[Rfam]
Shown here is a 101-nucleotide sequence from Helobdella robusta, a member of the family "Small nucleolar RNA SNORD16". Rfam classes the family as a C/D-box small nucleolar RNA. NCBI's taxonomy places the organism under Eukaryota, Metazoa, Eumetazoa, Protostomia, Helobdella. Rfam links the family to the GO terms nucleolus and RNA processing. The family's consensus secondary structure was predicted with PFOLD. Rfam 15.1 lists 1,321 matches to the family in 655 species.
RNA sequence: UCCAAUGAUGUCGUAAUUUGCGUCAUAUCGUGGCCUACUGGAGACGGUUGCCUGCCUUUUUUAAUCCGGACGUCGCAAUUAUGAAAAUUAAUUUCUGAGGA
Number, nucleotide and partner (000 for none) at each position: 001u101002c100003c099004a000005a000006u000007g000008a000009u000010g000011u000012c000013g000014u000015a000016a000017u000018u000019u000020g000021c083022g082023u081024c000025a000026u000027a000028u000029c000030g000031u000032g074033g073034c072035c000036u070037a000038c000039u000040g000041g066042a065043g059044a058045c000046g056047g055048u000049u000050g000051c000052c000053u000054g000055c047056c046057u000058u044059u043060u000061u000062u000063a000064a000065u042066c041067c000068g000069g000070a036071c000072g034073u033074c032075g000076c000077a000078a000079u000080u000081a023082u022083g021084a000085a000086a000087a000088u000089u000090a000091a000092u000093u000094u000095c000096u000097g000098a000099g003100g002101a001